[Rfam]
RNA: mir-87 microRNA precursor family
RNA sequence: CGCUCUCAGCCUGAUCCUUGCUCGACCUAAGCCUUUGACAAUGAGCGAGGUGAGCAAAGUUUCAGGUGCGUGAGCGG
Numbered sequence: 001c002g003c004u005c006u007c008a009g010c011c012u013g014a015u016c017c018u019u020g021c022u023c024g025a026c027c028u029a030a031g032c033c034u035u036u037g038a039c040a041a042u043g044a045g046c047g048a049g050g051u052g053a054g055c056a057a058a059g060u061u062u063c064a065g066g067u068g069c070g071u072g073a074g075c076g077g
Base pairs, nucleotide, nucleotide: 002075003074004073005072007070009067010066011065012064013063014062016059018057019056021054022053023052024051026050027049028048